[Rfam]
RNA sequence: UUACUUUUGCCUAUUAUUAGGCUAAAAUAGAAGAAAACCGGAGAAAUUGCAAGAAACACUUUAAUACCCAUUUUACUUUAAAAAUUACCUUUGUUUUUAUUUUUAUUUAUCUUUUAGUAAAAAUAUAAAUAAAAAGGCUAGAGCAGAGGUCAAAAGGUAGAAACAAAGCUCCGUUGUUUUCAACCCGAGGGUUGCUUUGCCACCAGAGGGGAGCAAAAAUGGUAAAAAAAAGUCAAUUUGCAGCCGAGCAUAAUUUAGUGAAAUAAUUAUAAAGGUUAUAUCUUUUGAUUAUAAAGGUUAUGAAGGUUCAACGACUAAUAGGUGAGUAUCACUAACAAUAAGCCUAACACGAAUUUCCGGCAAUCAUAAUAAAAAAAAAUAAAAAUUAUGGUUGAUGACAUAGUCUGAACUUACUUGAAAAAGUAAG
Numbered sequence: 001u002u003a004c005u006u007u008u009g010c011c012u013a014u015u016a017u018u019a020g021g022c023u024a025a026a027a028u029a030g031a032a033g034a035a036a037a038c039c040g041g042a043g044a045a046a047u048u049g050c051a052a053g054a055a056a057c058a059c060u061u062u063a064a065u066a067c068c069c070a071u072u073u074u075a076c077u078u079u080a081a082a083a084a085u086u087a088c089c090u091u092u093g094u095u096u097u098u099a100u101u102u103u104u105a106u107u108u109a110u111c112u113u114u115u116a117g118u119a120a121a122a123a124u125a126u127a128a129a130u131a132a133a134a135a136g137g138c139u140a141g142a143g144c145a146g147a148g149g150u151c152a153a154a155a156g157g158u159a160g161a162a163a164c165a166a167a168g169c170u171c172c173g174u175u176g177u178u179u180u181c182a183a184c185c186c187g188a189g190g191g192u193u194g195c196u197u198u199g200c201c202a203c204c205a206g207a208g209g210g211g212a213g214c215a216a217a218a219a220u221g222g223u224a225a226a227a228a229a230a231a232g233u234c235a236a237u238u239u240g241c242a243g244c245c246g247a248g249c250a251u252a253a254u255u256u257a258g259u260g261a262a263a264u265a266a267u268u269a270u271a272a273a274g275g276u277u278a279u280a281u282c283u284u285u286u287g288a289u290u291a292u293a294a295a296g297g298u299u300a301u302g303a304a305g306g307u308u309c310a311a312c313g314a315c316u317a318a319u320a321g322g323u324g325a326g327u328a329u330c331a332c333u334a335a336c337a338a339u340a341a342g343c344c345u346a347a348c349a350c351g352a353a354u355u356u357c358c359g360g361c362a363a364u365c366a367u368a369a370u371a372a373a374a375a376a377a378a379a380u381a382a383a384a385a386u387u388a389u390g391g392u393u394g395a396u397g398a399c400a401u402a403g404u405c406u407g408a409a410c411u412u413a414c415u416u417g418a419a420a421a422a423g424u425a426a427g
Base pairs, nucleotide, nucleotide: 038360039359040358041357043355044354048242049241050240051239052238053237058233059232060231061230062229243307244306250299254295255294256293257292311406313405314404315403316402317401363392364391365390366389367388368387369386370385412425413424414423415422416421
RNA: Group I catalytic intron
Organism: Agrocybe chaxingu